Rfam assigns this 162-nucleotide RNA from Natranaerobius thermophilus to the family "c-di-AMP riboswitch aptamer (ydaO/yuaA leader)". The pairing is the family consensus, mapped onto this sequence. Taxonomically the source falls in Natranaerobius thermophilus (Bacteria, Bacillati, Natranaerobiales, Natranaerobius).
[Rfam]
RNA sequence: UAAAUAAAUACGCUUAAUCCCAUUGUAAAGGAGCGGGGGAACCAACUUUGCAACUUGUUGUAGUACACAGUAAGUUGCUUGGGGUGAAUCCUAUAUUUUAGGUAGGGCUACUCUUCGGCCCGAAUCCGACAGCUAACCUCGUAAGCGUUUGAAGGGGCUUAC
Numbered sequence: 001u002a003a004a005u006a007a008a009u010a011c012g013c014u015u016a017a018u019c020c021c022a023u024u025g026u027a028a029a030g031g032a033g034c035g036g037g038g039g040a041a042c043c044a045a046c047u048u049u050g051c052a053a054c055u056u057g058u059u060g061u062a063g064u065a066c067a068c069a070g071u072a073a074g075u076u077g078c079u080u081g082g083g084g085u086g087a088a089u090c091c092u093a094u095a096u097u098u099u100a101g102g103u104a105g106g107g108c109u110a111c112u113c114u115u116c117g118g119c120c121c122g123a124a125u126c127c128g129a130c131a132g133c134u135a136a137c138c139u140c141g142u143a144a145g146c147g148u149u150u151g152a153a154g155g156g157g158c159u160u161a162c
Base pairs, nucleotide, nucleotide: 011147012146013145014144018032019031020030033142034141035140036139037138038137043081044080082127083126084125090102091101092100093099105121106120107119108118